[Rfam]
RNA sequence: UCCGGAUAAACUUGCAUCCAUCCAAGAGAAUGGGGCAAGUCACUUUACGGAAGUUAAAUUGAGUAACACAUUUCAGGAUUGCCAAAGGCUUACAUAUAAGCGAAAUCUUGAAAUGAUUAGGAUAACCGUAUGUCCUUUAGUGUUUUAUACUAUAAAAAUAAUCUUGAACAGCUUUGAUUAAGUUUUCAAGUUAUGGUCUG
Numbered sequence: 001u002c003c004g005g006a007u008a009a010a011c012u013u014g015c016a017u018c019c020a021u022c023c024a025a026g027a028g029a030a031u032g033g034g035g036c037a038a039g040u041c042a043c044u045u046u047a048c049g050g051a052a053g054u055u056a057a058a059u060u061g062a063g064u065a066a067c068a069c070a071u072u073u074c075a076g077g078a079u080u081g082c083c084a085a086a087g088g089c090u091u092a093c094a095u096a097u098a099a100g101c102g103a104a105a106u107c108u109u110g111a112a113a114u115g116a117u118u119a120g121g122a123u124a125a126c127c128g129u130a131u132g133u134c135c136u137u138u139a140g141u142g143u144u145u146u147a148u149a150c151u152a153u154a155a156a157a158a159u160a161a162u163c164u165u166g167a168a169c170a171g172c173u174u175u176g177a178u179u180a181a182g183u184u185u186u187c188a189a190g191u192u193a194u195g196g197u198c199u200g
Base pairs, nucleotide, nucleotide: 001051002050003049004048006046008044010040011039012038013037014036015035017034018033019032020031021030022028069115070114071113072112074110075109076108077107078106079105080104088101089100091098119136120135121134122133123132125197126196127195128194129193130192131158138152139151140150141149142148163190164189165188166187167186168185170183